[Rfam]
RNA: HIV gag stem loop 3 (GSL3)
RNA sequence: GGCCAGGGGGAAAGAAAAUGUAUAAACUAAAACAUAUAGUAUGGGCAAGCAGGGAACUAGAAAGAUUCGCACUUAACCCCGGUC
Numbered sequence: 001g002g003c004c005a006g007g008g009g010g011a012a013a014g015a016a017a018a019u020g021u022a023u024a025a026a027c028u029a030a031a032a033c034a035u036a037u038a039g040u041a042u043g044g045g046c047a048a049g050c051a052g053g054g055a056a057c058u059a060g061a062a063a064g065a066u067u068c069g070c071a072c073u074u075a076a077c078c079c080c081g082g083u084c
Stems, first nucleotide, its partner, number of pairs: 001084004006079003